RNA: mir-1 microRNA precursor family
RNA sequence: CCUAAUGCCGAAUACUUCUUGCCACCCAUAGUUACAUUGAAAGGUGUAACUAUGGGUGGCAAGAAGUAUUCGGCAUUAGG
Numbered sequence: 001c002c003u004a005a006u007g008c009c010g011a012a013u014a015c016u017u018c019u020u021g022c023c024a025c026c027c028a029u030a031g032u033u034a035c036a037u038u039g040a041a042a043g044g045u046g047u048a049a050c051u052a053u054g055g056g057u058g059g060c061a062a063g064a065a066g067u068a069u070u071c072g073g074c075a076u077u078a079g080g
Stems, first nucleotide, its partner, number of pairs: 007074029